[Rfam]
RNA sequence: UGGCUGCACUCAACAUUCAUUGCUGUCGGUGGGUUUGACUUUGAAUCAACUCACUGAUCAAUGAAUGUAAACUGCGGACCA
Numbered sequence: 001u002g003g004c005u006g007c008a009c010u011c012a013a014c015a016u017u018c019a020u021u022g023c024u025g026u027c028g029g030u031g032g033g034u035u036u037g038a039c040u041u042u043g044a045a046u047c048a049a050c051u052c053a054c055u056g057a058u059c060a061a062u063g064a065a066u067g068u069a070a071a072c073u074g075c076g077g078a079c080c081a
Stems, first nucleotide, its partner, number of pairs: 001081003004077005014067009025058007033050003
The record is an 81-nucleotide RNA sequence from Bos taurus, which matches "mir-181 microRNA precursor family" in Rfam. The sequence is in the family's curated seed alignment.